[Rfam]
Nucleotides: 093
Stems, first nucleotide, its partner, number of pairs: 012037002017032006040087004045083003048078003055072004
Number, partner (000 for none) and nucleotide at each position: 001000c002000a003000u004000a005000g006000a007000a008000a009000a010000a011000g012037g013036c014000a015000a016000a017032c018031u019030c020029g021028u022027u023000g024000a025000a026000a027022g028021a029020u030019g031018g032017g033000g034000a035000c036013g037012c038000a039000a040087a041086g042085u043084c044000a045083c046082a047081g048078g049077u050076c051000u052000a053000a054000g055072g056071u057070a058069u059000u060000g061000a062000u063000u064000g065000u066000a067000a068000a069058a070057u071056a072055c073000u074000a075000a076050g077049a078048u079000g080000g081047c082046u083045g084043g085042a086041u087040u088000g089000c090000c091000u092000u093000a